The record is a 133-nucleotide RNA sequence from Aotus nancymaae, which matches "Small nucleolar RNA SNORA9" in Rfam. The base pairs follow the family's consensus structure, which was predicted with PFOLD. The organism belongs to Aotus, within Eukaryota. By type it is an H/ACA-box small nucleolar RNA. About the family: ACA9 is a member of the H/ACA class of snoRNA that guide the sites of modification of uridines to pseudouridines. It scores 150 bits against the family's covariance model. The family has 36 seed sequences and 1,202 matches in Rfam 15.1.
[Rfam]
RNA sequence: UAGCGAGCUUCUAGCGUGCUUGGGUCUGCAGUGACCCUGUGCAUUCCUAUAGUGCUUGCCAGAACAGUUUUGAAAUGGUUUGAGGCCUUGCCCUGCUCCAUGUAGAGCAAGGUCAUAGAAAUUUCAGACAGUG
Number, nucleotide and partner (000 for none) at each position: 001u000002a000003g059004c058005g057006a056007g055008c054009u000010u000011c000012u000013a000014g000015c000016g000017u043018g042019c041020u000021u000022g037023g036024g035025u034026c033027u000028g000029c000030a000031g000032u000033g026034a025035c024036c023037c022038u000039g000040u000041g019042c018043a017044u000045u000046c000047c000048u000049a000050u000051a000052g000053u000054g008055c007056u006057u005058g004059c003060c000061a000062g000063a000064a000065c000066a000067g000068u000069u000070u000071u126072g125073a124074a123075a122076u000077g000078g000079u000080u000081u000082g000083a000084g000085g000086c112087c111088u110089u109090g108091c107092c000093c105094u104095g103096c000097u000098c000099c000100a000101u000102g000103u095104a094105g093106a000107g091108c090109a089110a088111g087112g086113u000114c000115a000116u000117a000118g000119a000120a000121a000122u075123u074124u073125c072126a071127g000128a000129c000130a000131g000132u000133g000